[Rfam]
RNA sequence: UAGCCAGCCGAUUAAUGUGUUUAUCUGAUGUGUUCCCGCAGAAAUUUGGAAACAGCUGGCAACAGUGAUGCCAUUUUAGGAGGUUUAAGGUUAACCAGGGUCAUUGCAGUCCCUGAAAAUGGCUACAAUA
Numbered sequence: 001u002a003g004c005c006a007g008c009c010g011a012u013u014a015a016u017g018u019g020u021u022u023a024u025c026u027g028a029u030g031u032g033u034u035c036c037c038g039c040a041g042a043a044a045u046u047u048g049g050a051a052a053c054a055g056c057u058g059g060c061a062a063c064a065g066u067g068a069u070g071c072c073a074u075u076u077u078a079g080g081a082g083g084u085u086u087a088a089g090g091u092u093a094a095c096c097a098g099g100g101u102c103a104u105u106g107c108a109g110u111c112c113c114u115g116a117a118a119a120u121g122g123c124u125a126c127a128a129u130a
Stems, first nucleotide, its partner, number of pairs: 003060005016042001018040003070123004082110001084108001086106003090102001092100001
Dot-bracket structure: ..(((((........(.(((.................))).).............))))).........((((........(.(.(((.(.(.......).).))).).).........)))).......
This 130-nucleotide RNA sequence from Jaculus jaculus belongs to the Rfam family "Small nucleolar RNA SNORA33". A search with the family's covariance model found it, with a score of 79 bits. The organism belongs to Jaculus, within Eukaryota. Rfam classes the family as an H/ACA-box small nucleolar RNA. From the family's description: ACA33 is a member of the H/ACA class of snoRNA that guide the sites of modification of uridines to pseudouridines.